A member of the RNA family "MIR5565 microRNA precursor family" from Zea mays, 109 nucleotides long.

[Rfam]
RNA sequence: ACUCUAGUAUUGACCAUAAUCCACAUGUCUUGAGGUAGAUUGUGGUGUAACUUAAACUAAUUUACAUCCCAAUCCACCUCAACACAUGUGGAUUGAGGUCAAUACUAGA
Numbered sequence: 001a002c003u004c005u006a007g008u009a010u011u012g013a014c015c016a017u018a019a020u021c022c023a024c025a026u027g028u029c030u031u032g033a034g035g036u037a038g039a040u041u042g043u044g045g046u047g048u049a050a051c052u053u054a055a056a057c058u059a060a061u062u063u064a065c066a067u068c069c070c071a072a073u074c075c076a077c078c079u080c081a082a083c084a085c086a087u088g089u090g091g092a093u094u095g096a097g098g099u100c101a102a103u104a105c106u107a108g109a
Stems, first nucleotide, its partner, number of pairs: 004108011017095012030082003035077002038074005045067003

Gene Ontology terms of the family: miRNA-mediated post-transcriptional gene silencing and RISC complex.